Record summary:
Shown here is a 74-nucleotide sequence, a member of the family "tRNA".

[Rfam]
RNA sequence: CGCGGGGUAGAGCAGUUUGGUAGCUCGCAAGGCUCAUAACCUUGAGGUCACGGGUUCAAAUCCUGUCUCCGCAA
Numbered sequence: 001c002g003c004g005g006g007g008u009a010g011a012g013c014a015g016u017u018u019g020g021u022a023g024c025u026c027g028c029a030a031g032g033c034u035c036a037u038a039a040c041c042u043u044g045a046g047g048u049c050a051c052g053g054g055u056u057c058a059a060a061u062c063c064u065g066u067c068u069c070c071g072c073a074a
Stems, first nucleotide, its partner, number of pairs: 002072006010026004028044005050066005
The family's RNA type in Rfam is transfer RNA. The sequence is in the family's curated seed alignment.